[Rfam]
RNA sequence: UCCAUCGCGAGGUGGAAUCUGAAGGAAGCCGGAGGCAAAAGCACGGGCCAAGGUACACAAACUGGAUUUGAGGCAGGAUGAACCGGAUGAGCUGCCAUAACACAGCGAAAUCCAAAGCCGCCAAGGAUCACUCCUGUAAACUCCAGUGGUCGUGGGCGGAAAGAUGACGUU
Numbered sequence: 001u002c003c004a005u006c007g008c009g010a011g012g013u014g015g016a017a018u019c020u021g022a023a024g025g026a027a028g029c030c031g032g033a034g035g036c037a038a039a040a041g042c043a044c045g046g047g048c049c050a051a052g053g054u055a056c057a058c059a060a061a062c063u064g065g066a067u068u069u070g071a072g073g074c075a076g077g078a079u080g081a082a083c084c085g086g087a088u089g090a091g092c093u094g095c096c097a098u099a100a101c102a103c104a105g106c107g108a109a110a111u112c113c114a115a116a117g118c119c120g121c122c123a124a125g126g127a128u129c130a131c132u133c134c135u136g137u138a139a140a141c142u143c144c145a146g147u148g149g150u151c152g153u154g155g156g157c158g159g160a161a162a163g164a165u166g167a168c169g170u171u
Stems, first nucleotide, its partner, number of pairs: 001016006028171001030169002036163001041157002044154002046151005062146005067140001073137003077133001079130003083126002085113004091106004

Shown here is a 171-nucleotide sequence from Paenibacillus macerans, a member of the family "Group II catalytic intron D1-D4-3". The source organism's lineage runs through Bacteria, Bacillota, Bacilli, Paenibacillaceae and Paenibacillus. The pairing is the family consensus, mapped onto this sequence. The match comes from Rfam's covariance-model search (122 bits).